[Rfam]
RNA sequence: AUAUCUCAUUGGCAAACAUACCGAAAGGUAAGGGCGCAAAAUUACCGGCCUAAGGGAGACUAUGGCAGCGGGGUUGCGGUA
Numbered sequence: 001a002u003a004u005c006u007c008a009u010u011g012g013c014a015a016a017c018a019u020a021c022c023g024a025a026a027g028g029u030a031a032g033g034g035c036g037c038a039a040a041a042u043u044a045c046c047g048g049c050c051u052a053a054g055g056g057a058g059a060c061u062a063u064g065g066c067a068g069c070g071g072g073g074u075u076g077c078g079g080u081a
Base pairs, nucleotide, nucleotide: 012037013036017032019030020029021028022027040075041074042073043072045071046070047069048066049065050064055060
Annotation
This 81-nucleotide RNA sequence from Sideroxydans sp. CL21 belongs to the Rfam family "c-di-GMP-I riboswitch aptamer". Its family is annotated with cyclic-di-GMP binding in the Gene Ontology. The match comes from Rfam's covariance-model search (62 bits). Rfam describes the family as follows. GEMM was predicted in a large-scale screen for bacterial structured RNA regulatory elements. The base pairs follow the family's consensus structure, which is taken from published work. Taxonomically the source falls in Sideroxydans (Bacteria, Pseudomonadati, Pseudomonadota, Betaproteobacteria).